[Rfam]
RNA sequence: CAAAAAACCAGCGUCGACUGGGCGCUGGCGAGGACGACAUACAAACCGUCAGAAGGCCGUGCAGGUAUCGGCGGACGGCGACGCGAUGCGUCUAUAGGGCCGGGGAUUAAUGGUUCAACUACUGGGGCCUGCAACCAAUGUGAGCGGAUUCUAGCAGGGUUUUAUAGAUCGUCAACACUAUAGAAAUUCGUUUCUAUAACAAAAAGUAA
Numbered sequence: 001c002a003a004a005a006a007a008c009c010a011g012c013g014u015c016g017a018c019u020g021g022g023c024g025c026u027g028g029c030g031a032g033g034a035c036g037a038c039a040u041a042c043a044a045a046c047c048g049u050c051a052g053a054a055g056g057c058c059g060u061g062c063a064g065g066u067a068u069c070g071g072c073g074g075a076c077g078g079c080g081a082c083g084c085g086a087u088g089c090g091u092c093u094a095u096a097g098g099g100c101c102g103g104g105g106a107u108u109a110a111u112g113g114u115u116c117a118a119c120u121a122c123u124g125g126g127g128c129c130u131g132c133a134a135c136c137a138a139u140g141u142g143a144g145c146g147g148a149u150u151c152u153a154g155c156a157g158g159g160u161u162u163u164a165u166a167g168a169u170c171g172u173c174a175a176c177a178c179u180a181u182a183g184a185a186a187u188u189c190g191u192u193u194c195u196a197u198a199a200c201a202a203a204a205a206g207u208a209a
Stems, first nucleotide, its partner, number of pairs: 008028007046113004056072004080092005139177003144172004150168004
Dot-bracket structure: .......(((((((.......))))))).................((((......((((.........)))).......(((((...))))).................)))).........................(((..((((..((((...........))))))))..)))................................